Group II catalytic intron D1-D4-4: a 144-nucleotide RNA from Paenibacillus sp. FSL H8-0548. Gene Ontology term of the family: Group II intron splicing. A search with the family's covariance model found it, with a score of 99 bits. The organism belongs to Paenibacillus, within Bacteria.
[Rfam]
RNA sequence: UAGUUGGUGAAAGUCCAACCGAAGGAGGGGCCAAGCCACCUUCGUAGCUAGGAUACCUACGUAUGGCGAAAUCUGUGCGUAGAAGCGUAUCGACAAAAGUACCUGUCAGAGACAGGGCAAGCAACCUACCAGGCCGUAACAUGA
Numbered sequence: 001u002a003g004u005u006g007g008u009g010a011a012a013g014u015c016c017a018a019c020c021g022a023a024g025g026a027g028g029g030g031c032c033a034a035g036c037c038a039c040c041u042u043c044g045u046a047g048c049u050a051g052g053a054u055a056c057c058u059a060c061g062u063a064u065g066g067c068g069a070a071a072u073c074u075g076u077g078c079g080u081a082g083a084a085g086c087g088u089a090u091c092g093a094c095a096a097a098a099g100u101a102c103c104u105g106u107c108a109g110a111g112a113c114a115g116g117g118c119a120a121g122c123a124a125c126c127u128a129c130c131a132g133g134c135c136g137u138a139a140c141a142u143g144a
Stems, first nucleotide, its partner, number of pairs: 020044005052091005057082006066073001099118001102116005121137002